[Rfam]
RNA sequence: GACGUCGGAAGCCCGUGCCAGGGCGAGCGAGCGCUCGGGAAGGUCUGAGUUCGACAGUGAGCUGCGAGAGGCAGUCGGCACGAAAGCGCCGCUGCAGGCACUAGAAAGCACCGCCGCUUGCUCGUUGACAGAUGAGGCCCCGGCCGAUGCUUAGAGCUCGCGGCGCUGGAAGCCUGCAGAAGUAUCUAUCAGUCAAAUGCACGGGGCUGCUGGGCUCUCCCAGUAGAAACACAAUUCAGACUACUCUCCGACGUC
Numbered sequence: 001g002a003c004g005u006c007g008g009a010a011g012c013c014c015g016u017g018c019c020a021g022g023g024c025g026a027g028c029g030a031g032c033g034c035u036c037g038g039g040a041a042g043g044u045c046u047g048a049g050u051u052c053g054a055c056a057g058u059g060a061g062c063u064g065c066g067a068g069a070g071g072c073a074g075u076c077g078g079c080a081c082g083a084a085a086g087c088g089c090c091g092c093u094g095c096a097g098g099c100a101c102u103a104g105a106a107a108g109c110a111c112c113g114c115c116g117c118u119u120g121c122u123c124g125u126u127g128a129c130a131g132a133u134g135a136g137g138c139c140c141c142g143g144c145c146g147a148u149g150c151u152u153a154g155a156g157c158u159c160g161c162g163g164c165g166c167u168g169g170a171a172g173c174c175u176g177c178a179g180a181a182g183u184a185u186c187u188a189u190c191a192g193u194c195a196a197a198u199g200c201a202c203g204g205g206g207c208u209g210c211u212g213g214g215c216u217c218u219c220c221c222a223g224u225a226g227a228a229a230c231a232c233a234a235u236u237c238a239g240a241c242u243a244c245u246c247u248c249c250g251a252c253g254u255c
Base pairs, nucleotide, nucleotide: 001255002254003253004252007249008248009247012205013204014203015202016201017200018199021036022035023034024033025032045239046238047237048236049235050181051180052179061075062074063073064072065071076091077090078089079088081086093178094177095176096175097174098173099172115165116164117163207226208225209224210223211222212221

Rfam assigns this 255-nucleotide sequence from Carpediemonas membranifera to the family "Nuclear RNase P".
Lineage of the source: Eukaryota > Metamonada > Fornicata > Carpediemonas-like organisms > Carpediemonas.
On this family, see Frank and Pace, Annu Rev Biochem 1998: "Ribonuclease P: unity and diversity in a tRNA processing ribozyme".
A search with the family's covariance model found it, with a score of 86 bits.